[Rfam]
RNA sequence: AUGAGAUGAUGAAAAUCUUUAUGCCAAUCUGUGUCUGGGCUUCUGAACAAACACUGAUGGAUGUUAGAGUCCUGAUCAU
Numbered sequence: 001a002u003g004a005g006a007u008g009a010u011g012a013a014a015a016u017c018u019u020u021a022u023g024c025c026a027a028u029c030u031g032u033g034u035c036u037g038g039g040c041u042u043c044u045g046a047a048c049a050a051a052c053a054c055u056g057a058u059g060g061a062u063g064u065u066a067g068a069g070u071c072c073u074g075a076u077c078a079u
Stems, first nucleotide, its partner, number of pairs: 001079004

The family of this 79-nucleotide RNA from Branchiostoma lanceolatum is "Small nucleolar RNA SNORD66". A search with the family's covariance model found it, with a score of 32 bits. Pairs were carried over by alignment from the consensus structure, which was predicted with RNAalifold. Rfam 15.1 lists 1,346 matches to the family in 614 species. Rfam classes the family as a C/D-box small nucleolar RNA. Rfam's curators write: snoRNA HBII-142 is part of the C/D family of snoRNAs. It is the human orthologue of the mouse MBII-142 snoRNA and is predicted to guide 2'O-ribose methylation of small 18S rRNA at residue C1272.